[Rfam]
RNA sequence: GGCUUCGGACGGGACGAGGCCCCGGCCCGGUGCGACCCUGGCGUACUUCCCCAACGCCAGGUGCGCAACCGGACCGGGACCCCGAUCCGUCGGACGCCUCCG
Numbered sequence: 001g002g003c004u005u006c007g008g009a010c011g012g013g014a015c016g017a018g019g020c021c022c023c024g025g026c027c028c029g030g031u032g033c034g035a036c037c038c039u040g041g042c043g044u045a046c047u048u049c050c051c052c053a054a055c056g057c058c059a060g061g062u063g064c065g066c067a068a069c070c071g072g073a074c075c076g077g078g079a080c081c082c083c084g085a086u087c088c089g090u091c092g093g094a095c096g097c098c099u100c101c102g
Stems, first nucleotide, its partner, number of pairs: 010089004015084002018081002021078005027072005032066003037061008
Dot-bracket structure: .........((((.((.((.(((((.((((((((..((((((((.........))))))))..))).))))).))))).)).)).)))).............
Shown here is a 102-nucleotide RNA from Gordonia soli, a member of the family "mraW RNA". A search with the family's covariance model found it, with a score of 65 bits. NCBI's taxonomy places the organism under Bacteria, Bacillati, Mycobacteriales, Gordoniaceae, Gordonia soli.